[Rfam]
The family of this 61-nucleotide RNA from Striga hermonthica is "Plastid-psbN 5UTR RNA". By type it is a cis-regulatory element. Pairs were carried over by alignment from the consensus structure, which was predicted with LocARNA. Rfam describes the family as follows. Plastid psbN is a non-coding RNA (ncRNA) recognised in plastids. On this family, see Richter et al., Plant Commun 2023: "Retrograde signaling in plants: A critical review focusing on the GUN pathway and beyond".

RNA sequence: UGCGACACCCAUCAAAGGGGUCAUUCCCCACCCCGGAGCUACUUUACCAUAUGUUGAAUUC
Numbered sequence: 001u002g003c004g005a006c007a008c009c010c011a012u013c014a015a016a017g018g019g020g021u022c023a024u025u026c027c028c029c030a031c032c033c034c035g036g037a038g039c040u041a042c043u044u045u046a047c048c049a050u051a052u053g054u055u056g057a058a059u060u061c
Base pairs, nucleotide, nucleotide: 017045018044019043020042021041024038025037026036027035